A member of the RNA family "small nucleolar RNA snoR143" from Dioscorea zingiberensis, 165 nucleotides long. NCBI's taxonomy places the organism under Eukaryota, Streptophyta, Tracheophyta, Liliopsida, Dioscorea. On this family, see Chen and Wu, Nucleic Acids Res 2009: "Mining small RNA sequencing data: a new approach to identify small nucleolar RNAs in Arabidopsis". Rfam classes the family as an H/ACA-box small nucleolar RNA. Rfam links the family to the GO terms nucleolus and RNA processing. The family's consensus secondary structure was predicted with RNAalifold. A search with the family's covariance model found it, with a score of 85 bits.
RNA sequence: UUGCACCUGUCAAAUAGAAUGAGGUUCCACAAACUUUGGUUGGGGGAUUUCAGUGGCGGUGCAUAGAAAAAAAGCUGUUUUCAGCAGCGGCCAGACAACCGUAGUGAUGGAUCCACAGGUGAAAGGUUCACUGUACCAUUUGUCUACUGAUUCCAUCUCAUAUGC
Numbered sequence: 001u002u003g004c005a006c007c008u009g010u011c012a013a014a015u016a017g018a019a020u021g022a023g024g025u026u027c028c029a030c031a032a033a034c035u036u037u038g039g040u041u042g043g044g045g046g047a048u049u050u051c052a053g054u055g056g057c058g059g060u061g062c063a064u065a066g067a068a069a070a071a072a073a074g075c076u077g078u079u080u081u082c083a084g085c086a087g088c089g090g091c092c093a094g095a096c097a098a099c100c101g102u103a104g105u106g107a108u109g110g111a112u113c114c115a116c117a118g119g120u121g122a123a124a125g126g127u128u129c130a131c132u133g134u135a136c137c138a139u140u141u142g143u144c145u146a147c148u149g150a151u152u153c154c155a156u157c158u159c160a161u162a163u164g165c
Base pairs, nucleotide, nucleotide: 002063003062004061005060006059014054015053020052021051022050023049024048025047026046027045028044030042031041032040104159106157107156108155109154110153111152122141123140124139125136